[Rfam]
RNA sequence: CGAUUUCCUUUGGGGUCCACAGAAGGAACGUUCACGUUGUAGUCCCCGUCAGAUGAGUGCUCUCAUUUGCCAACCCUUCC
Number, nucleotide and partner (000 for none) at each position: 001c000002g000003a000004u000005u000006u000007c000008c000009u000010u000011u000012g000013g046014g045015g044016u000017c042018c000019a000020c000021a000022g079023a078024a077025g076026g075027a000028a040029c039030g038031u000032u000033c000034a000035c000036g000037u000038u030039g029040u028041a000042g017043u000044c015045c014046c013047c000048g000049u000050c069051a068052g067053a066054u065055g064056a063057g000058u000059g000060c000061u000062c000063u056064c055065a054066u053067u052068u051069g050070c000071c000072a000073a000074c000075c026076c025077u024078u023079c022080c000

Overview:
The record is an 80-nucleotide RNA from Acanthosepion pharaonis, which matches "Mammalian CPEB3 ribozyme" in Rfam. The base pairs follow the family's consensus structure, which is taken from published work.